RNA: Vault RNA
RNA sequence: GGGCCAGCUUAGCCUAGUGGUUACUUCGUGCCACGACACAUCCAAGACACUUCUAGCAGUUUGAAACCCACUGGUGCUGCCUGGCCUUAAA
Numbered sequence: 001g002g003g004c005c006a007g008c009u010u011a012g013c014c015u016a017g018u019g020g021u022u023a024c025u026u027c028g029u030g031c032c033a034c035g036a037c038a039c040a041u042c043c044a045a046g047a048c049a050c051u052u053c054u055a056g057c058a059g060u061u062u063g064a065a066a067c068c069c070a071c072u073g074g075u076g077c078u079g080c081c082u083g084g085c086c087u088u089a090a091a
Stems, first nucleotide, its partner, number of pairs: 002086006012075003017071004025065004